[Rfam]
RNA: Streptomyces RNA 5676
RNA sequence: AGAUGAGAGAAACACCCCGUCCGCAGGGGACUGCGGACGGCUCCGGGACGGAGCCUCCCCAGCCUCGUCCUGGUCGUGCCCUCGCGCACACCACUGGAGCCCUCGGCUCCGGAUCUCCUCACCGAUCGGA
Numbered sequence: 001a002g003a004u005g006a007g008a009g010a011a012a013c014a015c016c017c018c019g020u021c022c023g024c025a026g027g028g029g030a031c032u033g034c035g036g037a038c039g040g041c042u043c044c045g046g047g048a049c050g051g052a053g054c055c056u057c058c059c060c061a062g063c064c065u066c067g068u069c070c071u072g073g074u075c076g077u078g079c080c081c082u083c084g085c086g087c088a089c090a091c092c093a094c095u096g097g098a099g100c101c102c103u104c105g106g107c108u109c110c111g112g113a114u115c116u117c118c119u120c121a122c123c124g125a126u127c128g129g130a
Stems, first nucleotide, its partner, number of pairs: 004121004009117002017040010043073005049067003053063002076089004094112008122129002